Shown here is a 79-nucleotide RNA sequence from Muraenolepis orangiensis, a member of the family "Small nucleolar RNA SNORD121A". The family's RNA type in Rfam is C/D-box small nucleolar RNA. NCBI's taxonomy places the organism under Eukaryota, Opisthokonta, Vertebrata, Acanthomorphata, Muraenolepis. Rfam links the family to the GO terms nucleolus and RNA processing. Rfam 15.1 lists 881 matches to the family in 444 species. A search with the family's covariance model found it, with a score of 52 bits.
[Rfam]
RNA sequence: GACAAGGAGGUGAUGAUGUCAUUUUCAAGCACAUAUCUGAACACUGAUCUGUGGAUUAACAAUAACUGAACCUCUUGAC
Numbered sequence: 001g002a003c004a005a006g007g008a009g010g011u012g013a014u015g016a017u018g019u020c021a022u023u024u025u026c027a028a029g030c031a032c033a034u035a036u037c038u039g040a041a042c043a044c045u046g047a048u049c050u051g052u053g054g055a056u057u058a059a060c061a062a063u064a065a066c067u068g069a070a071c072c073u074c075u076u077g078a079c
Stems, first nucleotide, its partner, number of pairs: 001079001003077004008073004

For this family Rfam cites "snoSeeker: an advanced computational package for screening of guide and orphan snoRNA genes in the human genome" (Yang et al., Nucleic Acids Res, 2006).
Pairs were carried over by alignment from the consensus structure, which was predicted with WAR.